Description:
A member of the RNA family "mir-9256 microRNA precursor family" from Pipistrellus kuhlii, 67 nucleotides long. It scores 80 bits against the family's covariance model. The family's consensus secondary structure was predicted with RNAalifold.
[Rfam]
RNA sequence: AAAUGCACUGAGCGGCCAGAUUAUUAUGCAAUCAGAGAUCAUAAUAAUCUGGCCGCUCAGUAUAUAU
Numbered sequence: 001a002a003a004u005g006c007a008c009u010g011a012g013c014g015g016c017c018a019g020a021u022u023a024u025u026a027u028g029c030a031a032u033c034a035g036a037g038a039u040c041a042u043a044a045u046a047a048u049c050u051g052g053c054c055g056c057u058c059a060g061u062a063u064a065u066a067u
Base pairs, nucleotide, nucleotide: 004064005063007061008060009059010058011057012056013055014054015053016052017051019049020048021047022046023045024044025043026042027041028040